6C RNA: a 78-nucleotide sequence from Paracoccus seriniphilus. It scores 50 bits against the family's covariance model. Its family is annotated with sporulation in the Gene Ontology. It is annotated as a cis-regulatory element. A reference for the family is Weinberg et al. (2007), "Identification of 22 candidate structured RNAs in bacteria using the CMfinder comparative genomics pipeline", Nucleic Acids Res. The organism belongs to Paracoccus, within Bacteria.

RNA sequence: GAAUUCCCGCCCGACCUCCUCCCCGGGCAGGGAUUGGCGACACUCUCCCCUCCUCCUCCCAGGAGAGUGUCGCCCCUA
Numbered sequence: 001g002a003a004u005u006c007c008c009g010c011c012c013g014a015c016c017u018c019c020u021c022c023c024c025g026g027g028c029a030g031g032g033a034u035u036g037g038c039g040a041c042a043c044u045c046u047c048c049c050c051u052c053c054u055c056c057u058c059c060c061a062g063g064a065g066a067g068u069g070u071c072g073c074c075c076c077u078a
Stems, first nucleotide, its partner, number of pairs: 002035006009028005036074013